[Rfam]
RNA sequence: ACAACAAAAACAAAAAACGACGCAGCAAACCAAUAAAAACAAGACGUAACGGCUCUGACAUAACAAGAACAAAACGGACAGAGGCGCAGCUAACAGAUUUUUUUGGAGUGGAUCAGCUUUACAGGGACCUUUCGGUGAAAGGCCUCGCGACCGGACAGAGAACAAUAAAACUACCGUCAGGUAGCUCCAGAACCGGUGGGAUCAGGCUGUUGUGCAGACAGAUGAUUAAAGCGAAUCAGCGCUCAAAAAAAUACGUUUGCUCUUGACCCUGAUUGGGGGUCGCACAAGAACGCUGUGAAGGGACUGGUCGCCAACAACAAGAACAGGCCGCCCUAUAACAAUAAAAAGAGCAGGUAAAACACAUUGGAGGAGAGCCACGGCUCUCCUUUGUGCUUUGUGCCUUCUGAAAAACCGCCGCAC
Numbered sequence: 001a002c003a004a005c006a007a008a009a010a011c012a013a014a015a016a017a018c019g020a021c022g023c024a025g026c027a028a029a030c031c032a033a034u035a036a037a038a039a040c041a042a043g044a045c046g047u048a049a050c051g052g053c054u055c056u057g058a059c060a061u062a063a064c065a066a067g068a069a070c071a072a073a074a075c076g077g078a079c080a081g082a083g084g085c086g087c088a089g090c091u092a093a094c095a096g097a098u099u100u101u102u103u104u105g106g107a108g109u110g111g112a113u114c115a116g117c118u119u120u121a122c123a124g125g126g127a128c129c130u131u132u133c134g135g136u137g138a139a140a141g142g143c144c145u146c147g148c149g150a151c152c153g154g155a156c157a158g159a160g161a162a163c164a165a166u167a168a169a170a171c172u173a174c175c176g177u178c179a180g181g182u183a184g185c186u187c188c189a190g191a192a193c194c195g196g197u198g199g200g201a202u203c204a205g206g207c208u209g210u211u212g213u214g215c216a217g218a219c220a221g222a223u224g225a226u227u228a229a230a231g232c233g234a235a236u237c238a239g240c241g242c243u244c245a246a247a248a249a250a251a252u253a254c255g256u257u258u259g260c261u262c263u264u265g266a267c268c269c270u271g272a273u274u275g276g277g278g279g280u281c282g283c284a285c286a287a288g289a290a291c292g293c294u295g296u297g298a299a300g301g302g303a304c305u306g307g308u309c310g311c312c313a314a315c316a317a318c319a320a321g322a323a324c325a326g327g328c329c330g331c332c333c334u335a336u337a338a339c340a341a342u343a344a345a346a347a348g349a350g351c352a353g354g355u356a357a358a359a360c361a362c363a364u365u366g367g368a369g370g371a372g373a374g375c376c377a378c379g380g381c382u383c384u385c386c387u388u389u390g391u392g393c394u395u396u397g398u399g400c401c402u403u404c405u406g407a408a409a410a411a412c413c414g415c416c417g418c419a420c
Stems, first nucleotide, its partner, number of pairs: 050086002053083004101248005116240002148199001150197005171184005266280005299402003303398002305330004350393003367388009
The record is a 420-nucleotide RNA from Pseudomonas syringae group genomosp. 3, which matches "Pseudomonas sRNA CrcZ" in Rfam. By type it is a small RNA. Lineage of the source: Bacteria > Pseudomonadales > Pseudomonadaceae > Pseudomonas syringae group genomosp. 3 > Pseudomonas syringae pv. tomato. The family's consensus secondary structure was predicted with WAR.